Shown here is a 127-nucleotide sequence from Camelus ferus, a member of the family "Small nucleolar RNA SNORA27". About the family: ACA27 is a member of the H/ACA class of snoRNA that guide the sites of modification of uridines to pseudouridines. The pairing is the family consensus, mapped onto this sequence. The organism belongs to Camelus, within Eukaryota. It is annotated as an H/ACA-box small nucleolar RNA.
RNA sequence: CAUCCCCUCUUCACUUUGUCAACUGGACUUAUGUCUUCAUUGGUCAUUCAAGUGGGGCGAAGGAAGGAUCCUUUUAAAAUUCAAGCAAACUGGGUGCUUGUCUUAUAACUUGUCAGAGGAAACAAAU
Numbered sequence: 001c002a003u004c005c006c007c008u009c010u011u012c013a014c015u016u017u018g019u020c021a022a023c024u025g026g027a028c029u030u031a032u033g034u035c036u037u038c039a040u041u042g043g044u045c046a047u048u049c050a051a052g053u054g055g056g057g058c059g060a061a062g063g064a065a066g067g068a069u070c071c072u073u074u075u076a077a078a079a080u081u082c083a084a085g086c087a088a089a090c091u092g093g094g095u096g097c098u099u100g101u102c103u104u105a106u107a108a109c110u111u112g113u114c115a116g117a118g119g120a121a122a123c124a125a126a127u
Stems, first nucleotide, its partner, number of pairs: 032059005040051004069120006083103001085101004090096001
Description: The family is grouped with related families in Rfam's "SNORA27 clan". Its family is annotated with nucleolus and RNA processing in the Gene Ontology. It scores 132 bits against the family's covariance model.